[Rfam]
RNA sequence: AAAUAAGUUUUUAAAGUGUCUAAUGAUGAAUUUCAUAGGGCAGAUUCUGAGAUGAAAAUUGAAUUCAUCACUGAUACUUGUACUGUGAAAUCUGAAGACACUUAAAAACCU
Numbered sequence: 001a002a003a004u005a006a007g008u009u010u011u012u013a014a015a016g017u018g019u020c021u022a023a024u025g026a027u028g029a030a031u032u033u034c035a036u037a038g039g040g041c042a043g044a045u046u047c048u049g050a051g052a053u054g055a056a057a058a059u060u061g062a063a064u065u066c067a068u069c070a071c072u073g074a075u076a077c078u079u080g081u082a083c084u085g086u087g088a089a090a091u092c093u094g095a096a097g098a099c100a101c102u103u104a105a106a107a108a109c110c111u
Base pairs, nucleotide, nucleotide: 014103015102016101017100018099019098020097021096030091031090032089033088034087035086036085037081039079040078043075046074047073049071051069052068053067054066055065056064